[Rfam]
RNA sequence: AUUAAAAUUAAAAAUAGACCUCGUAUAAUUGUGAUAAUAUGGUUCACGAGUUUCUAGUGUCAGCCGAUAACUGGCAACUAUGAGGGAAAUAAAUUAUUCG
Numbered sequence: 001a002u003u004a005a006a007a008u009u010a011a012a013a014a015u016a017g018a019c020c021u022c023g024u025a026u027a028a029u030u031g032u033g034a035u036a037a038u039a040u041g042g043u044u045c046a047c048g049a050g051u052u053u054c055u056a057g058u059g060u061c062a063g064c065c066g067a068u069a070a071c072u073g074g075c076a077a078c079u080a081u082g083a084g085g086g087a088a089a090u091a092a093a094u095u096a097u098u099c100g
Base pairs, nucleotide, nucleotide: 019085020084021083022082023081024080025079029049030048031047032046033045034044058076059075060074061073062072063071
RNA: Purine riboswitch aptamer
Organism: Halanaerobium praevalens